The record is a 140-nucleotide RNA from Cricetulus griseus, which matches "Small nucleolar RNA SNORA64/SNORA10 family" in Rfam. Rfam describes the family as follows. This family belongs to the H/ACA class of small nucleolar RNAs (snoRNAs) which act as guides in the the modification of uridines to pseudouridines. This family includes the human snoRNAs U64 and ACA10 and mouse MBI-29.

RNA sequence: CCUCCCUCAGCUCUGGCAAUCACACAGGUCCAGUGUGUGCAUGGUGGAUUUUUAAGCAAGAGAAGAGAGAGGAUGACAUUCCUAAUGCAUUACCGACCUGCCCCAAAGUGGCUUCUCUGUUCCUAAGGAGUUCAUCAGCU
Numbered sequence: 001c002c003u004c005c006c007u008c009a010g011c012u013c014u015g016g017c018a019a020u021c022a023c024a025c026a027g028g029u030c031c032a033g034u035g036u037g038u039g040c041a042u043g044g045u046g047g048a049u050u051u052u053u054a055a056g057c058a059a060g061a062g063a064a065g066a067g068a069g070a071g072g073a074u075g076a077c078a079u080u081c082c083u084a085a086u087g088c089a090u091u092a093c094c095g096a097c098c099u100g101c102c103c104c105a106a107a108g109u110g111g112c113u114u115c116u117c118u119g120u121u122c123c124u125a126a127g128g129a130g131u132u133c134a135u136c137a138g139c140u
Stems, first nucleotide, its partner, number of pairs: 002071003006067003011062004018042001021039005079130005085124001087122001095117002100112003

NCBI's taxonomy places the organism under Eukaryota, Mammalia, Eutheria, Myomorpha, Cricetulus. Gene Ontology terms of the family: RNA processing and nucleolus. The family's RNA type in Rfam is H/ACA-box small nucleolar RNA.